The family of this 92-nucleotide RNA sequence from Falsibacillus albus is "pan motif".
It scores 59 bits against the family's covariance model.
The source organism's lineage runs through Bacteria, Bacillati, Bacillota, Caryophanales and Falsibacillus.
RNA sequence: UGGGCAGUAUCAUAUUAUGACCUGCACCUGCAAGUUUUACCGAUUAAAUUGAAUACGUUUUCUGCCUUGAUCUAUAUGACGGGGACAGAGGG
Numbered sequence: 001u002g003g004g005c006a007g008u009a010u011c012a013u014a015u016u017a018u019g020a021c022c023u024g025c026a027c028c029u030g031c032a033a034g035u036u037u038u039a040c041c042g043a044u045u046a047a048a049u050u051g052a053a054u055a056c057g058u059u060u061u062c063u064g065c066c067u068u069g070a071u072c073u074a075u076a077u078g079a080c081g082g083g084g085a086c087a088g089a090g091g092g
Stems, first nucleotide, its partner, number of pairs: 002028002004025004010020002062088003065084005071079002